This 183-nucleotide sequence from Desulfosporosinus sp. I2 belongs to the Rfam family "Lysine riboswitch aptamer".
The match comes from Rfam's covariance-model search (98 bits).
Lineage of the source: Bacteria > Bacillati > Eubacteriales > Desulfitobacteriaceae > Desulfosporosinus.
RNA sequence: AGGUGGGGUAGAGGCGCGAUCUCUAACAGUCUUUAGUGGAGCUUGAGAAGCAUUGAUACUAUGGAGAAGGAAAGGUCGCCGAAGCUUGUAAUACUCUCGAUAUUACUUGCUGGGUCUGUAGUUAAUAACUGCAGGACUGUCUCAAUAAACUUAACCAGUUUAUUGAGUUGUGCUAUCUCAGUG
Numbered sequence: 001a002g003g004u005g006g007g008g009u010a011g012a013g014g015c016g017c018g019a020u021c022u023c024u025a026a027c028a029g030u031c032u033u034u035a036g037u038g039g040a041g042c043u044u045g046a047g048a049a050g051c052a053u054u055g056a057u058a059c060u061a062u063g064g065a066g067a068a069g070g071a072a073a074g075g076u077c078g079c080c081g082a083a084g085c086u087u088g089u090a091a092u093a094c095u096c097u098c099g100a101u102a103u104u105a106c107u108u109g110c111u112g113g114g115u116c117u118g119u120a121g122u123u124a125a126u127a128a129c130u131g132c133a134g135g136a137c138u139g140u141c142u143c144a145a146u147a148a149a150c151u152u153a154a155c156c157a158g159u160u161u162a163u164u165g166a167g168u169u170g171u172g173c174u175a176u177c178u179c180a181g182u183g
Stems, first nucleotide, its partner, number of pairs: 006178006016079007024071001031064002034061005083111003088106006112138002115135008141167009
Dot-bracket structure: .....((((((....(((((((.(......((.(((((..................))))).))......).)))))))...(((..((((((.......))))))..)))((.((((((((.....)))))))).))..(((((((((.........))))))))).....)))))).....